Notes:
The record is a 69-nucleotide RNA from Oryzias javanicus, which matches "miR-430 microRNA precursor family" in Rfam. Its Rfam clan is "mir-290 clan". The base pairs follow the family's consensus structure, which was predicted with RNAalifold. Lineage of the source: Eukaryota > Bilateria > Percomorphaceae > Oryziinae > Oryzias.
RNA sequence: AAGAUGACCUUAACAAUUGCACUGACUUGAGAUUCUUUGCAGUAAGUGCUAUAUGUUGGGGUAGUCUUG
Numbered sequence: 001a002a003g004a005u006g007a008c009c010u011u012a013a014c015a016a017u018u019g020c021a022c023u024g025a026c027u028u029g030a031g032a033u034u035c036u037u038u039g040c041a042g043u044a045a046g047u048g049c050u051a052u053a054u055g056u057u058g059g060g061g062u063a064g065u066c067u068u069g
Base pairs, nucleotide, nucleotide: 004065005064007062008061009060010059011058013056014055015054019049020048021047022046023045025043026042027041
Its family is annotated with RISC complex and miRNA-mediated post-transcriptional gene silencing in the Gene Ontology.